[Rfam]
RNA sequence: AUGCUUUGCUUAAUUAUAAUUUGUGUCACUUUGUUGUGUGAUACUACUCUACAAGUGAAGCUAGAAACAUUGUUCUUCUCGCUAUCCUUUACUCCUUUUUCUGGUGUAUUUGGACGUUGGGGAACUACAUUA
Numbered sequence: 001a002u003g004c005u006u007u008g009c010u011u012a013a014u015u016a017u018a019a020u021u022u023g024u025g026u027c028a029c030u031u032u033g034u035u036g037u038g039u040g041a042u043a044c045u046a047c048u049c050u051a052c053a054a055g056u057g058a059a060g061c062u063a064g065a066a067a068c069a070u071u072g073u074u075c076u077u078c079u080c081g082c083u084a085u086c087c088u089u090u091a092c093u094c095c096u097u098u099u100u101c102u103g104g105u106g107u108a109u110u111u112g113g114a115c116g117u118u119g120g121g122g123a124a125c126u127a128c129a130u131u132a
Stems, first nucleotide, its partner, number of pairs: 002063001003061003008056004013048001015046002023044007072125007080116002085114003094104002
The record is a 132-nucleotide RNA sequence from Solanum commersonii, which matches "Small nucleolar RNA snoR136" in Rfam.
On this family, see Chen and Wu, Nucleic Acids Res 2009: "Mining small RNA sequencing data: a new approach to identify small nucleolar RNAs in Arabidopsis".
Rfam links the family to the GO terms nucleolus and RNA processing.
The base pairs follow the family's consensus structure, which was predicted with mfold.
It scores 56 bits against the family's covariance model.
By type it is an H/ACA-box small nucleolar RNA.